[Rfam]
RNA: Glycine riboswitch aptamer
Organism: Rossellomorea aquimaris
RNA sequence: GGAGCAGCUUCUGGAGAGACCGCGAGAGUUUUCGCGGCGCCGAAGGGUUCAUAAUCUCAGGCAAAAGGACAGAAGAGUAUCA
Numbered sequence: 001g002g003a004g005c006a007g008c009u010u011c012u013g014g015a016g017a018g019a020c021c022g023c024g025a026g027a028g029u030u031u032u033c034g035c036g037g038c039g040c041c042g043a044a045g046g047g048u049u050c051a052u053a054a055u056c057u058c059a060g061g062c063a064a065a066a067g068g069a070c071a072g073a074a075g076a077g078u079a080u081c082a
Stems, first nucleotide, its partner, number of pairs: 008075006020037004039062003042058002046056003